The family of this 79-nucleotide RNA from Caenorhabditis auriculariae is "mir-44 microRNA precursor family". Taxonomically the source falls in Caenorhabditis (Eukaryota, Eumetazoa, Rhabditoidea, Peloderinae). Pairs were carried over by alignment from the consensus structure, which was predicted with RNAalifold. The match comes from Rfam's covariance-model search (66 bits). The literature on the family includes a 2009 paper in Genome Res by de Wit et al., "Repertoire and evolution of miRNA genes in four divergent nematode species".
[Rfam]
RNA sequence: AUCCUGCCGCACUGGGUGUGCUCGUUGGUCAUAGCCUCGAAGUGCUUAUGACUAGAGACACAUUCAGCUUGGCGGGAGC
Numbered sequence: 001a002u003c004c005u006g007c008c009g010c011a012c013u014g015g016g017u018g019u020g021c022u023c024g025u026u027g028g029u030c031a032u033a034g035c036c037u038c039g040a041a042g043u044g045c046u047u048a049u050g051a052c053u054a055g056a057g058a059c060a061c062a063u064u065c066a067g068c069u070u071g072g073c074g075g076g077a078g079c
Stems, first nucleotide, its partner, number of pairs: 005074005012067009022058002027053007